[Rfam]
RNA sequence: CCAACGCUGCGUUUCCAUGCUACAAACAGAGAGACUUUGAUCAGCCUCUCAGACCUUUUUCCUGCCUCGUCAGGACUUGGAACUCUACAAGCAUGUGGGAAAUUCGGAGUACUGCCUCAAACACCACCUCCCCUCCUCCGUAUGGGGGAUGCGGGCAGGUCUGCCGGUAACGGCCUGGCGUCAAUCGACGCUUGCAAACGACAUCAGAAAUCUCGGAGCCGUUCUUCAGAAACGUGUCUCCAUGGGAAGUCGUUGCGAGGCUUGUUUGGAGAAAACUGAAGUGCGAUACGCAGCGUCCCUUUGCCCUCUUGGGCGGGAUGACUCAAUUCCGAUCACUCUGGG
Number, nucleotide and partner (000 for none) at each position: 001c341002c340003a339004a000005c000006g294007c293008u292009g291010c290011g289012u288013u000014u000015c000016c095017a094018u093019g092020c000021u000022a000023c000024a000025a000026a000027c000028a000029g085030a084031g083032a000033g000034a000035c000036u000037u000038u000039g000040a000041u000042c000043a000044g000045c000046c000047u000048c000049u000050c000051a000052g000053a000054c000055c000056u000057u000058u000059u000060u000061c000062c000063u000064g000065c000066c000067u000068c000069g000070u000071c000072a000073g000074g000075a000076c000077u000078u000079g000080g000081a000082a000083c031084u030085c029086u000087a000088c000089a000090a000091g000092c019093a018094u017095g016096u000097g000098g000099g000100a000101a000102a000103u000104u000105c331106g330107g329108a328109g327110u000111a000112c000113u000114g000115c260116c259117u258118c257119a000120a000121a000122c000123a000124c000125c000126a000127c000128c000129u000130c000131c000132c000133c000134u000135c000136c000137u000138c000139c000140g000141u000142a000143u000144g000145g000146g000147g000148g000149a000150u000151g000152c000153g000154g000155g000156c000157a000158g000159g000160u000161c000162u000163g174164c173165c172166g171167g000168u000169a000170a000171c166172g165173g164174c163175c000176u000177g192178g191179c190180g189181u188182c000183a000184a000185u000186c000187g000188a181189c180190g179191c178192u177193u000194g000195c000196a000197a254198a253199c252200g251201a250202c249203a000204u000205c000206a000207g000208a000209a000210a000211u000212c000213u000214c000215g241216g240217a239218g000219c000220c000221g000222u000223u000224c000225u000226u000227c000228a000229g000230a000231a000232a000233c000234g000235u000236g000237u000238c000239u217240c216241c215242a000243u000244g000245g000246g000247a000248a000249g202250u201251c200252g199253u198254u197255g000256c000257g118258a117259g116260g115261c000262u000263u000264g000265u000266u000267u000268g000269g000270a000271g000272a000273a000274a000275a000276c000277u000278g000279a000280a000281g000282u000283g000284c000285g000286a000287u000288a012289c011290g010291c009292a008293g007294c006295g319296u318297c317298c316299c315300u000301u313302u000303g000304c000305c000306c000307u000308c000309u000310u000311g000312g000313g301314c000315g299316g298317g297318a296319u295320g000321a000322c000323u000324c000325a000326a000327u109328u108329c107330c106331g105332a000333u000334c000335a000336c000337u000338c000339u003340g002341g001342g000
A member of the RNA family "Nuclear RNase P" from Fusarium piperis, 342 nucleotides long.
Rfam describes the family as follows. Ribonuclease P (RNase P) is a ubiquitous endoribonuclease, found in archaea, bacteria and eukarya as well as chloroplasts and mitochondria. Its best characterised activity is the generation of mature 5'-ends of tRNAs by cleaving the 5'-leader elements of precursor-tRNAs. Cellular RNase Ps are ribonucleoproteins. RNA from bacterial RNase Ps retains its catalytic activity in the absence of the protein subunit, i.e. it is a ribozyme. Isolated eukaryotic and archaeal RNase P RNA has not been shown to retain its catalytic function, but is still essential for the catalytic activity of the holoenzyme. Although the archaeal and eukaryotic holoenzyme s have a much greater protein content than the bacterial ones, the RNA cores from all the three lineages are homologous -- helices corresponding to P1, P2, P3, P4, and P10/11 are common to all cellular RNase P RNAs. Yet, there is considerable sequence variation, particularly among the eukaryotic RNAs.
Gene Ontology terms of the family: tRNA processing, ribonuclease P complex and ribonuclease P activity.
The organism belongs to Fusarium solani species complex, within Eukaryota.